Shown here is a 105-nucleotide RNA sequence from Canis lupus, a member of the family "mir-8834 microRNA precursor family". Pairs were carried over by alignment from the consensus structure, which was predicted with RNAalifold. The family has 2 seed sequences and 13,926 matches in Rfam 15.1. It scores 94 bits against the family's covariance model.

RNA sequence: AGGAGGAACAACACUACUGGCGGGGCCAGCUCUGGAGCCCUGGAUUCAGCUCCUGCAGUAACUCCGGAGCUCUCUGUCUGCAGGGCUUGGAUGCUCCGGGGCAGG
Numbered sequence: 001a002g003g004a005g006g007a008a009c010a011a012c013a014c015u016a017c018u019g020g021c022g023g024g025g026c027c028a029g030c031u032c033u034g035g036a037g038c039c040c041u042g043g044a045u046u047c048a049g050c051u052c053c054u055g056c057a058g059u060a061a062c063u064c065c066g067g068a069g070c071u072c073u074c075u076g077u078c079u080g081c082a083g084g085g086c087u088u089g090g091a092u093g094c095u096c097c098g099g100g101g102c103a104g105g
Base pairs, nucleotide, nucleotide: 002097003096004095005094007092009089010088011087012085014083019078020077021076022075023074024073025072028071029070030069031068032067033066034065035064036063040058041057042056